[Rfam]
RNA: glmS glucosamine-6-phosphate activated ribozyme aptamer
RNA sequence: UUAGCUACACAAGCGCCAGAGCUUGCGCGCGAUUGCCUUAUCAUUGGAAGCGGGUAGGAUGACGCUUUCGUUGGAAGGCAGCGGCAAGCUGACGAGGUGGAGGUGUUCGAAUUGUUCGGCGGGGACCUCCCGGUUAUGCAUGCGACCGUAAGCCGAUUUCCCAAAACGACAGGGCGACCAGUCGUACAAAGGCUCGGCAAGAUGCCA
Numbered sequence: 001u002u003a004g005c006u007a008c009a010c011a012a013g014c015g016c017c018a019g020a021g022c023u024u025g026c027g028c029g030c031g032a033u034u035g036c037c038u039u040a041u042c043a044u045u046g047g048a049a050g051c052g053g054g055u056a057g058g059a060u061g062a063c064g065c066u067u068u069c070g071u072u073g074g075a076a077g078g079c080a081g082c083g084g085c086a087a088g089c090u091g092a093c094g095a096g097g098u099g100g101a102g103g104u105g106u107u108c109g110a111a112u113u114g115u116u117c118g119g120c121g122g123g124g125a126c127c128u129c130c131c132g133g134u135u136a137u138g139c140a141u142g143c144g145a146c147c148g149u150a151a152g153c154c155g156a157u158u159u160c161c162c163a164a165a166a167c168g169a170c171a172g173g174g175c176g177a178c179c180a181g182u183c184g185u186a187c188a189a190a191g192g193c194u195c196g197g198c199a200a201g202a203u204g205c206c207a
Stems, first nucleotide, its partner, number of pairs: 020090007028081001099130005107119004131148005153197004158192002167184004172179002